[Rfam]
RNA sequence: AUGAAAAAAAGUUGAUGUCUUCGUAUAUUUCUGGUGAUAUGGUCCAGAUGUCUCUACCAGAACUCCGUAAAGGUUCUGACUAUGAGGAUUUAUUUAUUACUA
Numbered sequence: 001a002u003g004a005a006a007a008a009a010a011g012u013u014g015a016u017g018u019c020u021u022c023g024u025a026u027a028u029u030u031c032u033g034g035u036g037a038u039a040u041g042g043u044c045c046a047g048a049u050g051u052c053u054c055u056a057c058c059a060g061a062a063c064u065c066c067g068u069a070a071a072g073g074u075u076c077u078g079a080c081u082a083u084g085a086g087g088a089u090u091u092a093u094u095u096a097u098u099a100c101u102a
Stems, first nucleotide, its partner, number of pairs: 018088008030048005058078007